[Rfam]
RNA sequence: UCCCGACAAAGGCAUAACCAAGGCAACUUGGCGACGCAAAGUCACGGGCCCCCUAGGGGUCGCCGGACUGCCGAA
Numbered sequence: 001u002c003c004c005g006a007c008a009a010a011g012g013c014a015u016a017a018c019c020a021a022g023g024c025a026a027c028u029u030g031g032c033g034a035c036g037c038a039a040a041g042u043c044a045c046g047g048g049c050c051c052c053c054u055a056g057g058g059g060u061c062g063c064c065g066g067a068c069u070g071c072c073g074a075a
Stems, first nucleotide, its partner, number of pairs: 012037002018031005040069004045065003048060005
RNA: c-di-GMP-I riboswitch aptamer